[Rfam]
RNA sequence: GAAAUUCGUCGGCGAUUUUGGGGUUUCUCGGAGAGAAAAUUCGUUGGCGAUUUUGAGUGAAAUCGGAGAGGAAAUUCGUCGGCGAUUUUGAGUGAAAUCGGAGAGAAAAAUU
Dot-bracket structure: ....((..((..((((((((.......(((..(.(..(((((.((..(((((((....)))))))..)).).))))..))..))).......))))))))..))..))....
MIR2933 microRNA precursor family: a 112-nucleotide RNA sequence from Arabidopsis thaliana. NCBI's taxonomy places the organism under Eukaryota, Tracheophyta, Mesangiospermae, eudicotyledons, Arabidopsis. The family's consensus secondary structure was predicted with RNAalifold.